A member of the RNA family "tRNA" from Neolewinella lacunae, 82 nucleotides long. NCBI's taxonomy places the organism under Bacteria, Bacteroidota, Saprospiria, Saprospirales, Neolewinella.
RNA sequence: GGGGGUGCGCUACAGUUGGAGAGGUAGGACGGACUGUAAAUCCGUUGUUUCGGCUGAGUAGGUUCGAAUCCUACCACCCCCA
Numbered sequence: 001g002g003g004g005g006u007g008c009g010c011u012a013c014a015g016u017u018g019g020a021g022a023g024g025u026a027g028g029a030c031g032g033a034c035u036g037u038a039a040a041u042c043c044g045u046u047g048u049u050u051c052g053g054c055u056g057a058g059u060a061g062g063u064u065c066g067a068a069u070c071c072u073a074c075c076a077c078c079c080c081c082a
Stems, first nucleotide, its partner, number of pairs: 001081007010027004029045005058074005